[Rfam]
RNA sequence: GCCUUGUGAUCUUUUGUCGAAAUGUGAGCAUUUGAAAAAAGCAGCCACUUCUCCCAGUCUUUGCAGACUGGCUCCAUGCAGGGGAAGACCUUCACUAAUCAGCCAGGCUUGAAGGCU
Number, nucleotide and partner (000 for none) at each position: 001g116002c115003c114004u113005u000006g000007u000008g000009a000010u000011c000012u000013u000014u000015u000016g000017u000018c000019g000020a000021a000022a000023u000024g000025u000026g000027a000028g079029c078030a077031u076032u000033u000034g000035a000036a000037a000038a000039a000040a000041g000042c000043a000044g000045c000046c000047a000048c000049u000050u000051c000052u000053c000054c000055c000056a000057g000058u000059c000060u000061u000062u000063g000064c000065a000066g000067a000068c000069u000070g000071g000072c000073u000074c000075c000076a031077u030078g029079c028080a000081g000082g000083g000084g000085a000086a000087g000088a000089c000090c000091u000092u000093c000094a000095c000096u000097a000098a000099u000100c000101a000102g000103c000104c000105a000106g000107g000108c000109u000110u000111g000112a000113a004114g003115g002116c001117u000

Shown here is a 117-nucleotide RNA from Diceros bicornis, a member of the family "Small nucleolar RNA SNORD83". The literature on the family includes a 2000 paper in Nucleic Acids Res by Jady and Kiss, "Characterisation of the U83 and U84 small nucleolar RNAs: two novel 2'-O-ribose methylation guide RNAs that lack complementarities to ribosomal RNAs". The base pairs follow the family's consensus structure, which was predicted with PFOLD. NCBI's taxonomy places the organism under Eukaryota, Craniata, Vertebrata, Laurasiatheria, Diceros bicornis. Its family is annotated with nucleolus and RNA processing in the Gene Ontology.